A member of the RNA family "Small nucleolar RNA SNORD19" from Gadus morhua, 74 nucleotides long.
It scores 42 bits against the family's covariance model.
Its Rfam clan is "SNORD19 clan".
The family's RNA type in Rfam is C/D-box small nucleolar RNA.
The base pairs follow the family's consensus structure.
RNA sequence: AGGAAAUGAGGAAACAAAUGCAAGUCUCGAUUUACCAUGAAGACUACUAAUCCAACUCUGAUCCUGCUGACAUC
Dot-bracket structure: ((((.........................................................)))).........